[Rfam]
RNA: mir-155 microRNA precursor family
Nucleotides: 065
Stems, first nucleotide, its partner, number of pairs: 004062011020048004025043003
Number, partner (000 for none) and nucleotide at each position: 001000u002000u003000g004062u005061u006060a007059a008058u009057g010056c011055u012054a013053a014052u015000u016000g017000u018000g019000a020048u021047a022046g023045g024000g025043g026042u027041u028000u029000u030000u031000a032000c033000c034000u035000a036000u037000a038000g039000c040000u041027g042026a043025c044000u045023c046022c047021u048020a049000c050000a051000u052014g053013u054012u055011a056010g057009c058008a059007u060006u061005a062004a063000c064000a065000c